[Rfam]
RNA sequence: UGGCGCCCAACAGUGUGGCGUUGGAUACGGGGGAAUUCGCGAGGGAAGAGGUGUAUAAUGGUUCAGCCGAACAAAGCAGAAAUCAGUUCAAGAAGGAUCGCUGCAGGAGCCUGCCGUGCCGUUCUUAAAGGUACAGUAGCGCCUAAGUAUGGGACAAGAAUUAAGUAAGCUUUAAGUUUUUGUUAAGCAAUUAAAAGAAGCUUUAAAGACACGGGGAGUAAAGGUUAAGAGUAAUCAUCUUUUUAAGUUUUUGACCUUAUUAAGGAUACCUGUCCGU
Numbered sequence: 001u002g003g004c005g006c007c008c009a010a011c012a013g014u015g016u017g018g019c020g021u022u023g024g025a026u027a028c029g030g031g032g033g034a035a036u037u038c039g040c041g042a043g044g045g046a047a048g049a050g051g052u053g054u055a056u057a058a059u060g061g062u063u064c065a066g067c068c069g070a071a072c073a074a075a076g077c078a079g080a081a082a083u084c085a086g087u088u089c090a091a092g093a094a095g096g097a098u099c100g101c102u103g104c105a106g107g108a109g110c111c112u113g114c115c116g117u118g119c120c121g122u123u124c125u126u127a128a129a130g131g132u133a134c135a136g137u138a139g140c141g142c143c144u145a146a147g148u149a150u151g152g153g154a155c156a157a158g159a160a161u162u163a164a165g166u167a168a169g170c171u172u173u174a175a176g177u178u179u180u181u182g183u184u185a186a187g188c189a190a191u192u193a194a195a196a197g198a199a200g201c202u203u204u205a206a207a208g209a210c211a212c213g214g215g216g217a218g219u220a221a222a223g224g225u226u227a228a229g230a231g232u233a234a235u236c237a238u239c240u241u242u243u244u245a246a247g248u249u250u251u252u253g254a255c256c257u258u259a260u261u262a263a264g265g266a267u268a269c270c271u272g273u274c275c276g277u
Base pairs, nucleotide, nucleotide: 006033007032008031015028016027017026038050040048088127097123099121102118103117104116106114137157139155142153143152144151145150162205163204164203165201166200212253213252214251215250217249218248219247222240223239224238225237227235262277264275265274266273267272
RNA: Mason-Pfizer monkey virus packaging signal
Organism: Sciurus vulgaris